[Rfam]
U11 spliceosomal RNA: a 134-nucleotide sequence from Dipodomys ordii. By type it is a spliceosomal small nuclear RNA. NCBI's taxonomy places the organism under Eukaryota, Craniata, Boreoeutheria, Castorimorpha, Dipodomys. The family has 72 seed sequences and 2,595 matches in Rfam 15.1.
Nucleotides: 134
Base pairs, nucleotide, nucleotide: 008084009083010082011081012080013026014025015024016023017022027055029053030052031051032050033049034048035047036046037045038044056079057078058077059076060075061074062073105129107128108127109126111124113123114122115121116120
Number, partner (000 for none) and nucleotide at each position: 001000a002000a003000a004000a005000a006000g007000g008084g009083c010082u011081u012080c013026u014025g015024c016023c017022a018000u019000g020000a021000g022017u023016g024015g025014c026013a027055c028000a029053c030052g031051u032050a033049g034048g035047g036046c037045a038044a039000c040000u041000u042000g043000a044038u045037u046036g047035c048034u049033c050032u051031g052030c053029g054000g055027g056079c057078a058077g059076a060075a061074u062073c063000g064000a065000c066000a067000u068000c069000a070000a071000c072000g073062g074061a075060u076059u077058u078057u079056g080012g081011a082010g083009g084008c085000a086000u087000a088000a089000u090000u091000u092000u093000u094000u095000g096000g097000u098000a099000c100000c101000u102000g103000g104000g105129c106000a107128g108127c109126u110000a111124g112000u113123g114122a115121u116120u117000g118000u119000u120116g121115g122114u123113c124111c125000c126109g127108g128107u129105g130000g131000g132000a133000g134000a